Shown here is a 66-nucleotide RNA sequence from Candidatus Kurthia intestinigallinarum, a member of the family "Bacillus-plasmid RNA". NCBI's taxonomy places the organism under Bacteria, Bacillota, Bacilli, Caryophanaceae, Kurthia. The family's consensus secondary structure is taken from published work. A search with the family's covariance model found it, with a score of 49 bits.
RNA sequence: UUCGUCAACGGUAAAUGUCUGACUGACCAACGGGAAGGAAUUUAAGGAGUUGACGAAUUUCGCAAA
Numbered sequence: 001u002u003c004g005u006c007a008a009c010g011g012u013a014a015a016u017g018u019c020u021g022a023c024u025g026a027c028c029a030a031c032g033g034g035a036a037g038g039a040a041u042u043u044a045a046g047g048a049g050u051u052g053a054c055g056a057a058u059u060u061c062g063c064a065a066a
Base pairs, nucleotide, nucleotide: 001057002056003055004054005053006052007051008050009049